[Rfam]
Nucleotides: 103
Base pairs, nucleotide, nucleotide: 006077007076008075009074010073015032017031018030019029020028021027033060034059035058038056039055040054041052042051043050047097048096049095079087080086081085
Number, partner (000 for none) and nucleotide at each position: 001000a002000a003000a004000g005000g006077g007076c008075a009074u010073c011000a012000g013000g014000a015032g016000u017031g018030g019029g020028g021027c022000g023000u024000g025000u026000c027021g028020c029019c030018c031017u032015c033060g034059c035058c036000a037000a038056c039055c040054u041052g042051c043050c044000a045000a046000u047097c048096c049095g050043g051042g052041c053000a054040a055039g056038g057000u058035g059034g060033c061000u062000c063000u064000c065000g066000c067000g068000a069000a070000g071000a072000g073010g074009a075008u076007g077006c078000g079087g080086c081085c082000g083000a084000u085081g086080g087079c088000a089000a090000c091000c092000a093000a094000g095049c096048g097047g098000u099000g100000u101000u102000u103000u
The family of this 103-nucleotide sequence from Tsuneonella litorea is "SAM-I/IV (S-adenosyl methionine) riboswitch aptamer". The match comes from Rfam's covariance-model search (64 bits). The family is grouped with related families in Rfam's "SAM clan". The family has 417 seed sequences and 567 matches in Rfam 15.1. Gene Ontology terms of the family: regulation of gene expression and S-adenosylmethionine metabolic process.